This 174-nucleotide RNA sequence from Sutcliffiella cohnii belongs to the Rfam family "Group II catalytic intron D1-D4-3".
It scores 131 bits against the family's covariance model.
RNA sequence: UGCGGGGUGACCUUCAUAUCUGAAGGAAGUCGGCGGCAAACUUCUGCUCCGAGGAACACGAAUCUCAUAUAAGGCUAGGUGAUACUGGAUGAGUCUGCAAUACAAGACAAAGUCCAUACUGCCGAAGGUGUCACAGAGUAAAUGAGGCGGAGACAUGGAAGGAAAGUCUACACU
Dot-bracket structure: ((.(((....))).))............(..(...((...(((((((((((...........((((((.....(((..((((((..((((..((((........))))...)))).............))))))..)))..)))))))))))...))))))....))...)..)

Overview:
Its family is annotated with Group II intron splicing in the Gene Ontology. About the family: Group II introns are found in rRNA, tRNA and mRNA of organelles in fungi, plants and protists, and also in mRNA in bacteria. The base pairs follow the family's consensus structure. NCBI's taxonomy places the organism under Bacteria, Bacillota, Bacilli, Bacillaceae, Sutcliffiella.